RNA sequence: AGAGCGGGCCUUUCAGGCAUCCUCUCCCAAACUUUCCAAGGCCGGUCGCAAGAUCGGCCUUUUUUUUGCCCGCU
Numbered sequence: 001a002g003a004g005c006g007g008g009c010c011u012u013u014c015a016g017g018c019a020u021c022c023u024c025u026c027c028c029a030a031a032c033u034u035u036c037c038a039a040g041g042c043c044g045g046u047c048g049c050a051a052g053a054u055c056g057g058c059c060u061u062u063u064u065u066u067u068g069c070c071c072g073c074u
Stems, first nucleotide, its partner, number of pairs: 008018004040059008

A member of the RNA family "Makes More Granules Regulator RNA (mmgR)" from Novosphingobium sp. AAP1, 74 nucleotides long.
It is annotated as a small RNA.
The pairing is the family consensus, mapped onto this sequence.
Lineage of the source: Bacteria > Pseudomonadati > Alphaproteobacteria > Sphingomonadales > Novosphingobium.
The match comes from Rfam's covariance-model search (44 bits).